[Rfam]
RNA: Small nucleolar RNA SNORA33
Organism: Jaculus jaculus
RNA sequence: AAGCCAGUCAGUUGGUCUGCUUAUCUGAAUGUGUUUCUGCAGAAAUAUAGAGAAAGCUGUCAAUAGUGAUGCCAUGUUAUGAGCCUUUAGGACAGCUGAGGUCGUUAAAGUCCCUGAAAAUGGCUACAAUA
Numbered sequence: 001a002a003g004c005c006a007g008u009c010a011g012u013u014g015g016u017c018u019g020c021u022u023a024u025c026u027g028a029a030u031g032u033g034u035u036u037c038u039g040c041a042g043a044a045a046u047a048u049a050g051a052g053a054a055a056g057c058u059g060u061c062a063a064u065a066g067u068g069a070u071g072c073c074a075u076g077u078u079a080u081g082a083g084c085c086u087u088u089a090g091g092a093c094a095g096c097u098g099a100g101g102u103c104g105u106u107a108a109a110g111u112c113c114c115u116g117a118a119a120a121u122g123g124c125u126a127c128a129a130u131a
Base pairs, nucleotide, nucleotide: 003061005059006058007057016043017042018041019040020039071124072123073122074121083111084110086108087107089105091103092102093101